[Rfam]
RNA: Bacterial RNase P class A
Organism: Pseudorhodobacter sp. PARRP1
RNA sequence: GCGGAUGGCUGGAUGACCGCGGGGCGCAAGUCUCGAGGAAAGUCCGGACUCCAUGAAGAAAGGGUGCCGGGUAACGCCCGGCGAGGGCAACCUCAGGGAAAGCGCCACAGAGAAAAGACUGCCGUGGUGUUCGGGUUCGCUCGGACGGAUCUGCGGCGAUGGUGAAACGGUGGGGUAAGAGCCCACCACGGACUUGGCAACAAGGACGGUAUGGCAAGCCCCACCCGGAGCAAUGCCGAAUAGGGGCCUCGCGUGGUAAGGUCCGCGACUGAAGCCGGCGCAAGCUGGCGGCGAUAGCGGAGACCACCACAGGGACCUUCAGCCCAGAGGCCCGGGUUGGCAGCUUGACUGCCCGUGGUAACACGGGUGGCAGAGGAAUGGUCAUCCAAGGGGCGUAAGCCCCGGGACAAAAUCCGGCUUACAGGCCGUCCGCGCAA
Numbered sequence: 001g002c003g004g005a006u007g008g009c010u011g012g013a014u015g016a017c018c019g020c021g022g023g024g025c026g027c028a029a030g031u032c033u034c035g036a037g038g039a040a041a042g043u044c045c046g047g048a049c050u051c052c053a054u055g056a057a058g059a060a061a062g063g064g065u066g067c068c069g070g071g072u073a074a075c076g077c078c079c080g081g082c083g084a085g086g087g088c089a090a091c092c093u094c095a096g097g098g099a100a101a102g103c104g105c106c107a108c109a110g111a112g113a114a115a116a117g118a119c120u121g122c123c124g125u126g127g128u129g130u131u132c133g134g135g136u137u138c139g140c141u142c143g144g145a146c147g148g149a150u151c152u153g154c155g156g157c158g159a160u161g162g163u164g165a166a167a168c169g170g171u172g173g174g175g176u177a178a179g180a181g182c183c184c185a186c187c188a189c190g191g192a193c194u195u196g197g198c199a200a201c202a203a204g205g206a207c208g209g210u211a212u213g214g215c216a217a218g219c220c221c222c223a224c225c226c227g228g229a230g231c232a233a234u235g236c237c238g239a240a241u242a243g244g245g246g247c248c249u250c251g252c253g254u255g256g257u258a259a260g261g262u263c264c265g266c267g268a269c270u271g272a273a274g275c276c277g278g279c280g281c282a283a284g285c286u287g288g289c290g291g292c293g294a295u296a297g298c299g300g301a302g303a304c305c306a307c308c309a310c311a312g313g314g315a316c317c318u319u320c321a322g323c324c325c326a327g328a329g330g331c332c333c334g335g336g337u338u339g340g341c342a343g344c345u346u347g348a349c350u351g352c353c354c355g356u357g358g359u360a361a362c363a364c365g366g367g368u369g370g371c372a373g374a375g376g377a378a379u380g381g382u383c384a385u386c387c388a389a390g391g392g393g394c395g396u397a398a399g400c401c402c403c404g405g406g407a408c409a410a411a412a413u414c415c416g417g418c419u420u421a422c423a424g425g426c427c428g429u430c431c432g433c434g435c436a437a
Stems, first nucleotide, its partner, number of pairs: 001433010011422001012386007020035006040420003044417005049230004058320003062226005067081005082096001083094004097221002102219002104215003119161001121157007169187006188210001189208002193204004234342004244333006313325002316322001350369008